[Rfam]
RNA: 7SK RNA
RNA sequence: GGAUGUGAGGGCGAUCUGGCUGCGACAUCUGUCACCUCACUAAUUGCCAGGGUUGAUUUGGCUGAUCUGGCUGGCUAGGUGGGUGUCCCCUUCCUCCCUCAAUUCUCCAUGUGUGUCCCUCCCAAAGCUGCACACUCAGUCUAAGAGGACAACCUCCCAACAAUUCAUUGGUACCAUUUAUUGGUCAAGGGUAGGCAGUACCUGAACUCCCCAGGUAGAACCUCCAAACAAGCUCAAGGCCCAUUUAUAGGAGAACAUAGGGCAGUCAAGCUUCCAAGACUGCAGACACAUCCAAGUGAGGCACCGCAUGGGGCAGUUUGCCAUUUGUU
Numbered sequence: 001g002g003a004u005g006u007g008a009g010g011g012c013g014a015u016c017u018g019g020c021u022g023c024g025a026c027a028u029c030u031g032u033c034a035c036c037u038c039a040c041u042a043a044u045u046g047c048c049a050g051g052g053u054u055g056a057u058u059u060g061g062c063u064g065a066u067c068u069g070g071c072u073g074g075c076u077a078g079g080u081g082g083g084u085g086u087c088c089c090c091u092u093c094c095u096c097c098c099u100c101a102a103u104u105c106u107c108c109a110u111g112u113g114u115g116u117c118c119c120u121c122c123c124a125a126a127g128c129u130g131c132a133c134a135c136u137c138a139g140u141c142u143a144a145g146a147g148g149a150c151a152a153c154c155u156c157c158c159a160a161c162a163a164u165u166c167a168u169u170g171g172u173a174c175c176a177u178u179u180a181u182u183g184g185u186c187a188a189g190g191g192u193a194g195g196c197a198g199u200a201c202c203u204g205a206a207c208u209c210c211c212c213a214g215g216u217a218g219a220a221c222c223u224c225c226a227a228a229c230a231a232g233c234u235c236a237a238g239g240c241c242c243a244u245u246u247a248u249a250g251g252a253g254a255a256c257a258u259a260g261g262g263c264a265g266u267c268a269a270g271c272u273u274c275c276a277a278g279a280c281u282g283c284a285g286a287c288a289c290a291u292c293c294a295a296g297u298g299a300g301g302c303a304c305c306g307c308a309u310g311g312g313g314c315a316g317u318u319u320g321c322c323a324u325u326u327g328u329u
Stems, first nucleotide, its partner, number of pairs: 001108003006101006013093002018090002024087010035074002037070003043066003046062003117171001122139001125136001127135001142159001147157003202270002207265002210262003214258001222253004228248001230246003294329002298324001300322003303317002306314002